[Rfam]
RNA: tRNA
Organism: Dictyostelium discoideum
RNA sequence: GCCCAGAUAGCUCAGUCGGUAGAGCGCAAGGCUUUUAACCUUGUGGUCGGGGGUUCGAGCCCCCCUUUGGGCG
Numbered sequence: 001g002c003c004c005a006g007a008u009a010g011c012u013c014a015g016u017c018g019g020u021a022g023a024g025c026g027c028a029a030g031g032c033u034u035u036u037a038a039c040c041u042u043g044u045g046g047u048c049g050g051g052g053g054u055u056c057g058a059g060c061c062c063c064c065c066u067u068u069g070g071g072c073g
Stems, first nucleotide, its partner, number of pairs: 001072007010025004027043005049065005